[Rfam]
RNA sequence: AGGCAGCCCCUUUGCCUUUGCUAUGACAGGGGAGGCGUUUAACUGCUCGUAAAGCAAUAUCUUUUGCUCUUCAGACUUGCUGAGAUUUUCGUUGAAGCUGGUCUAGUAAGCCUAAGUACAUU
Numbered sequence: 001a002g003g004c005a006g007c008c009c010c011u012u013u014g015c016c017u018u019u020g021c022u023a024u025g026a027c028a029g030g031g032g033a034g035g036c037g038u039u040u041a042a043c044u045g046c047u048c049g050u051a052a053a054g055c056a057a058u059a060u061c062u063u064u065u066g067c068u069c070u071u072c073a074g075a076c077u078u079g080c081u082g083a084g085a086u087u088u089u090c091g092u093u094g095a096a097g098c099u100g101g102u103c104u105a106g107u108a109a110g111c112c113u114a115a116g117u118a119c120a121u122u
Stems, first nucleotide, its partner, number of pairs: 002039003007035002009032006016025001061116003066111003073104005079098003084090002
The family of this 122-nucleotide RNA sequence from Ziziphus jujuba is "Small nucleolar RNA snoR77".
For this family Rfam cites "Experimental RNomics: identification of 140 candidates for small non-messenger RNAs in the plant Arabidopsis thaliana" (Marker et al., Curr Biol, 2002).
The family has 5 seed sequences and 649 matches in Rfam 15.1.
Taxonomically the source falls in Ziziphus (Eukaryota, Embryophyta, Euphyllophyta, Rhamnaceae).